[Rfam]
RNA sequence: UAACCGGCCCUUUUCAGGGCCACCAAAAUAAUUUAUGCACAAGAAU
Number, nucleotide and partner (000 for none) at each position: 001u000002a000003a000004c000005c000006g021007g020008c019009c018010c017011u016012u000013u000014u000015c000016a011017g010018g009019g008020c007021c006022a000023c000024c000025a000026a000027a000028a000029u000030a000031a000032u000033u000034u000035a000036u000037g000038c000039a000040c000041a000042a000043g000044a000045a000046u000